[Rfam]
RNA sequence: AUGUGACCCGUGGACUUCCCUUUGUCAUCCUAUGCCUAGAAUAUAUGAAGGGGGCUGGGAAGGCAAAGGGACGUUCAACUGUCAUCACU
Numbered sequence: 001a002u003g004u005g006a007c008c009c010g011u012g013g014a015c016u017u018c019c020c021u022u023u024g025u026c027a028u029c030c031u032a033u034g035c036c037u038a039g040a041a042u043a044u045a046u047g048a049a050g051g052g053g054g055c056u057g058g059g060a061a062g063g064c065a066a067a068g069g070g071a072c073g074u075u076c077a078a079c080u081g082u083c084a085u086c087a088c089u
Stems, first nucleotide, its partner, number of pairs: 017071006024064002028060005034055004